The family of this 63-nucleotide sequence from Apaloderma vittatum is "mir-737 microRNA precursor family". Rfam links the family to the GO terms RISC complex and miRNA-mediated post-transcriptional gene silencing. Rfam 15.1 lists 233 matches to the family in 207 species. The match comes from Rfam's covariance-model search (69 bits).
[Rfam]
RNA sequence: UAUUUUUUUUAGGUUUUGAUUUUUGUUACGUCUUCCUGCAAAAAUCAAAACCUAGAGAAAAUA
Numbered sequence: 001u002a003u004u005u006u007u008u009u010u011a012g013g014u015u016u017u018g019a020u021u022u023u024u025g026u027u028a029c030g031u032c033u034u035c036c037u038g039c040a041a042a043a044a045u046c047a048a049a050a051c052c053u054a055g056a057g058a059a060a061a062u063a
Base pairs, nucleotide, nucleotide: 004060005059006058007057008056009055010054011053012052013051014050015049016048017047018046019045020044021043022042023041024040